[Rfam]
RNA: U5 spliceosomal RNA
Organism: Cuscuta campestris
RNA sequence: AGUCACGCGUUGACCACAAAGCAAACUAUUCUUUCGCCUUUUACUAAAGAAUACUGUGUGUACGACGCAAAUAGUGACAUACGCUGAUUUUUUGAGGGUUUCUCUUUAUUGAGAAUU
Numbered sequence: 001a002g003u004c005a006c007g008c009g010u011u012g013a014c015c016a017c018a019a020a021g022c023a024a025a026c027u028a029u030u031c032u033u034u035c036g037c038c039u040u041u042u043a044c045u046a047a048a049g050a051a052u053a054c055u056g057u058g059u060g061u062a063c064g065a066c067g068c069a070a071a072u073a074g075u076g077a078c079a080u081a082c083g084c085u086g087a088u089u090u091u092u093u094g095a096g097g098g099u100u101u102c103u104c105u106u107u108a109u110u111g112a113g114a115a116u117u
Stems, first nucleotide, its partner, number of pairs: 003077004008067005015060004027053008095117001100115005